The record is a 78-nucleotide RNA sequence from Pelusios castaneus, which matches "mir-16 microRNA precursor family" in Rfam.
The family is grouped with related families in Rfam's "mir-15 clan".
For this family Rfam cites "Frequent deletions and down-regulation of micro- RNA genes miR15 and miR16 at 13q14 in chronic lymphocytic leukemia" (Calin et al., Proc Natl Acad Sci U S A, 2002).
The base pairs follow the family's consensus structure, which was predicted with PFOLD.
A search with the family's covariance model found it, with a score of 49 bits.
RNA sequence: CUCAGGCUGUAACAGCAAAUCAAAAUAGGUGUUAGGAUUCAAACUAACACCUAUUUUGAUUUGCUGUUACAGCCUGAC
Numbered sequence: 001c002u003c004a005g006g007c008u009g010u011a012a013c014a015g016c017a018a019a020u021c022a023a024a025a026u027a028g029g030u031g032u033u034a035g036g037a038u039u040c041a042a043a044c045u046a047a048c049a050c051c052u053a054u055u056u057u058g059a060u061u062u063g064c065u066g067u068u069a070c071a072g073c074c075u076g077a078c
Base pairs, nucleotide, nucleotide: 002077003076005074006073007072010071011068012067013066014065015064016063017062018061022057023056024055025054026053027052028051029050
Dot-bracket structure: .((.(((..(((((((((...((((((((....................))))))))...))))))))..)))).)).